[Rfam]
A member of the RNA family "mir-187 microRNA precursor family" from Anolis carolinensis, 79 nucleotides long. Its family is annotated with RISC complex and miRNA-mediated post-transcriptional gene silencing in the Gene Ontology. The sequence is in the family's curated seed alignment. A reference for the family is Lim et al. (2003), "Vertebrate microRNA genes", Science. Taxonomically the source falls in Anolis (Eukaryota, Eumetazoa, Unidentata, Toxicofera).
RNA sequence: UGUGAGACCUUUGGCUACAACACAGAACAUGGGCGCUUUCUUGGACCCUCGUGUCUUGUGUUGCAGCCAGAGGGGCACA
Dot-bracket structure: ........((..((((.((((((((.((.((((..............)))).)).)))))))).))))..)).......